Selenocysteine transfer RNA: an 86-nucleotide RNA from Chauna torquata.

RNA sequence: CACUGGGUGAUUCUCAGUGCUCUGGGAUGCAGGCUUCAAAUCUGUAGCUGUCUAGCAACAGAGGGGUUCAAUUCAUCCCCCAGGUG
Numbered sequence: 001c002a003c004u005g006g007g008u009g010a011u012u013c014u015c016a017g018u019g020c021u022c023u024g025g026g027a028u029g030c031a032g033g034c035u036u037c038a039a040a041u042c043u044g045u046a047g048c049u050g051u052c053u054a055g056c057a058a059c060a061g062a063g064g065g066g067u068u069c070a071a072u073u074c075a076u077c078c079c080c081c082a083g084g085u086g
Base pairs, nucleotide, nucleotide: 001086002085003084004083006081007080009078012027013026014025015024016023017022028046029045030044031043032042033041048061049060050059051058063077064076066074
The match comes from Rfam's covariance-model search (48 bits). Clan: tRNA clan.